[Rfam]
RNA sequence: AAAACACUGGCCGAGUUUGCCGUUCGGCAAACAUCAUUUUAUUGUAUGCACUUUUUCACUUCGUUGCAAAAAUGCGGCAAUUCGGCAAUCCUCGAAAUCUGAUGAUUUCUGCGGUUGUCGAAUUUAAAA
Dot-bracket structure: ............(((((((((....))))))).))............(((.((((............)))).)))....(((((((((.((..((((((....))))))...)))))))))))......
Numbered sequence: 001a002a003a004a005c006a007c008u009g010g011c012c013g014a015g016u017u018u019g020c021c022g023u024u025c026g027g028c029a030a031a032c033a034u035c036a037u038u039u040u041a042u043u044g045u046a047u048g049c050a051c052u053u054u055u056u057c058a059c060u061u062c063g064u065u066g067c068a069a070a071a072a073u074g075c076g077g078c079a080a081u082u083c084g085g086c087a088a089u090c091c092u093c094g095a096a097a098u099c100u101g102a103u104g105a106u107u108u109c110u111g112c113g114g115u116u117g118u119c120g121a122a123u124u125u126a127a128a129a
Stems, first nucleotide, its partner, number of pairs: 013035002015032007048075003052071004080123009090114002094109006
Source information
A member of the RNA family "TD-1 RNA" from Treponema pedis, 129 nucleotides long. Its Rfam clan is "TD (Treponema denticola) motifs".